This 47-nucleotide RNA sequence from Cairina moschata belongs to the Rfam family "Histone 3' UTR stem-loop".

RNA sequence: CCAAAGGCUCUUUUAAGAGCCACUCCAUCCUCAAAAAAGGCUGUUAU
Numbered sequence: 001c002c003a004a005a006g007g008c009u010c011u012u013u014u015a016a017g018a019g020c021c022a023c024u025c026c027a028u029c030c031u032c033a034a035a036a037a038a039g040g041c042u043g044u045u046a047u
Base pairs, nucleotide, nucleotide: 006021007020008019009018010017011016

Gene Ontology term of the family: mRNA 3'-end processing by stem-loop binding and cleavage. The family's consensus secondary structure is taken from published work.